[Rfam]
RNA sequence: UCCUUCUUGUAUAAGCACUGUGCUAAAAUUACAGAAACGAGGACUGUGUCUUGGUUUUUGUAAUAAUGCUAGCAGAGUACACACAGGAAGAAAAGUAACUGCACUAGAUCGGAAAGACUGGGGUGGACCUCUUUCUUAAUGUCCAGUGUCCUUUGUCUUAAGAUUGGGUGCGAUAAAA
Numbered sequence: 001u002c003c004u005u006c007u008u009g010u011a012u013a014a015g016c017a018c019u020g021u022g023c024u025a026a027a028a029u030u031a032c033a034g035a036a037a038c039g040a041g042g043a044c045u046g047u048g049u050c051u052u053g054g055u056u057u058u059u060g061u062a063a064u065a066a067u068g069c070u071a072g073c074a075g076a077g078u079a080c081a082c083a084c085a086g087g088a089a090g091a092a093a094a095g096u097a098a099c100u101g102c103a104c105u106a107g108a109u110c111g112g113a114a115a116g117a118c119u120g121g122g123g124u125g126g127a128c129c130u131c132u133u134u135c136u137u138a139a140u141g142u143c144c145a146g147u148g149u150c151c152u153u154u155g156u157c158u159u160a161a162g163a164u165u166g167g168g169u170g171c172g173a174u175a176a177a178a
Base pairs, nucleotide, nucleotide: 018077019076021074022073023072024071025070028067029066030065031064034058035057037055038054040052041051042050043049044048100172101171102170103169104168105167107165108164120149122147124145125144126143127142
RNA: Small nucleolar RNA SNORA81
Organism: Loxodonta africana